The family of this 191-nucleotide sequence from Leptothrix cholodnii is "Manganese Mn2+ riboswitch aptamer (yybP-ykoY)". Rfam's curators put it in the seed alignment. The source organism's lineage runs through Bacteria, Pseudomonadota, Sphaerotilaceae, Leptothrix and Leptothrix cholodnii. The pairing is the family consensus, mapped onto this sequence.
RNA sequence: UCGCUAUACUCGCGGCGCUUUCGUCAUUGGGGAGUAGCCGCCCUGCGCCCGCAGGGGUUCGCGUCAACACACUUGACCCUCACGGUCAUGGCGCGAACAGCUCCAGAGCCUGGCAAGACCUUUGACCACACUGCCUCCGGAAGGGCCGGGGAUGCCGUGUGGUCUCUGGUAUUCGCUGGCCCUUGGAGAUC
Numbered sequence: 001u002c003g004c005u006a007u008a009c010u011c012g013c014g015g016c017g018c019u020u021u022c023g024u025c026a027u028u029g030g031g032g033a034g035u036a037g038c039c040g041c042c043c044u045g046c047g048c049c050c051g052c053a054g055g056g057g058u059u060c061g062c063g064u065c066a067a068c069a070c071a072c073u074u075g076a077c078c079c080u081c082a083c084g085g086u087c088a089u090g091g092c093g094c095g096a097a098c099a100g101c102u103c104c105a106g107a108g109c110c111u112g113g114c115a116a117g118a119c120c121u122u123u124g125a126c127c128a129c130a131c132u133g134c135c136u137c138c139g140g141a142a143g144g145g146c147c148g149g150g151g152a153u154g155c156c157g158u159g160u161g162g163u164c165u166c167u168g169g170u171a172u173u174c175g176c177u178g179g180c181c182c183u184u185g186g187a188g189a190u191c
Base pairs, nucleotide, nucleotide: 001053057098058097059096060095061094062093063092064091065090066089074088075087076086077085078084099190101188102187103186104185105184
Dot-bracket structure: (...................................................)...((((((((((.......(((((.....)))))))))))))))(.(((((..............................................................................))))).).